[Rfam]
RNA sequence: AAGUGAUGUGAUGGUACACCAUCUUUCGGGGCUGACCUGAAAUGGAGAGAACUUGUAAUGCUGAUCACUU
Numbered sequence: 001a002a003g004u005g006a007u008g009u010g011a012u013g014g015u016a017c018a019c020c021a022u023c024u025u026u027c028g029g030g031g032c033u034g035a036c037c038u039g040a041a042a043u044g045g046a047g048a049g050a051a052c053u054u055g056u057a058a059u060g061c062u063g064a065u066c067a068c069u070u
Stems, first nucleotide, its partner, number of pairs: 001070006
Dot-bracket structure: ((((((..........................................................))))))

This 70-nucleotide RNA sequence from Gallus gallus belongs to the Rfam family "Small nucleolar RNA SNORD2". Its family is annotated with RNA processing and nucleolus in the Gene Ontology. The family's consensus secondary structure was predicted with WAR. The organism belongs to Gallus, within Eukaryota. By type it is a C/D-box small nucleolar RNA. The literature on the family includes a 2004 paper in Gene by Zhou et al., "Identification of a novel box C/D snoRNA from mouse nucleolar cDNA library".